[Rfam]
RNA sequence: AAUGGGCACGGUGAUGGGGUGCCACCGGAAUCGAAAGAUUCGAACCGCUUUAAAGCUAAUGACUCCUACAGAAAC
Numbered sequence: 001a002a003u004g005g006g007c008a009c010g011g012u013g014a015u016g017g018g019g020u021g022c023c024a025c026c027g028g029a030a031u032c033g034a035a036a037g038a039u040u041c042g043a044a045c046c047g048c049u050u051u052a053a054a055g056c057u058a059a060u061g062a063c064u065c066c067u068a069c070a071g072a073a074a075c
Stems, first nucleotide, its partner, number of pairs: 010026004016066005047056003
Dot-bracket structure: .........[[[[..(((((..]]]]....................(((....))).....))))).........

Description: The family of this 75-nucleotide RNA sequence from Vibrio campbellii is "Fluoride riboswitch aptamer (crcB RNA motif)". The sequence is in the family's curated seed alignment. NCBI's taxonomy places the organism under Bacteria, Vibrionales, Vibrionaceae, Vibrio, Vibrio campbellii.